A member of the RNA family "mir-252 microRNA precursor family" from Cloeon dipterum, 75 nucleotides long. Rfam links the family to the GO terms RISC complex and miRNA-mediated post-transcriptional gene silencing. Pairs were carried over by alignment from the consensus structure, which was predicted with RNAalifold. The family is grouped with related families in Rfam's "mir-252 microRNA precursor family". NCBI's taxonomy places the organism under Eukaryota, Opisthokonta, Eumetazoa, Allotriocarida, Cloeon.
RNA sequence: UCCCGUUACUAAGUACUAGUGCCGCAGGAGUUGAUUUCUGGCAACCUCCUGCUGCUCAAGUACUUAUCAAUGGGC
Numbered sequence: 001u002c003c004c005g006u007u008a009c010u011a012a013g014u015a016c017u018a019g020u021g022c023c024g025c026a027g028g029a030g031u032u033g034a035u036u037u038c039u040g041g042c043a044a045c046c047u048c049c050u051g052c053u054g055c056u057c058a059a060g061u062a063c064u065u066a067u068c069a070a071u072g073g074g075c
Stems, first nucleotide, its partner, number of pairs: 002074006010066008019057001024052007